[Rfam]
Shown here is an 80-nucleotide RNA from Flavobacterium muglaense, a member of the family "Flavo-1 RNA". The family's RNA type in Rfam is small RNA.

RNA sequence: UUUCGGGUGAGGGAUAGCAGUGGAAAUCCUUUUAUGAAAUGCAAUGGAAUAAAAGAUUGCAACGCAUAGCCCGACCGGAG
Numbered sequence: 001u002u003u004c005g006g007g008u009g010a011g012g013g014a015u016a017g018c019a020g021u022g023g024a025a026a027u028c029c030u031u032u033u034a035u036g037a038a039a040u041g042c043a044a045u046g047g048a049a050u051a052a053a054a055g056a057u058u059g060c061a062a063c064g065c066a067u068a069g070c071c072c073g074a075c076c077g078g079a080g
Base pairs, nucleotide, nucleotide: 011072012071013070015068016067020063021062025058026057027056028055031053032052033051034050035049

The family's consensus secondary structure is taken from published work. Rfam 15.1 lists 7,497 matches to the family in 411 species. A search with the family's covariance model found it, with a score of 51 bits.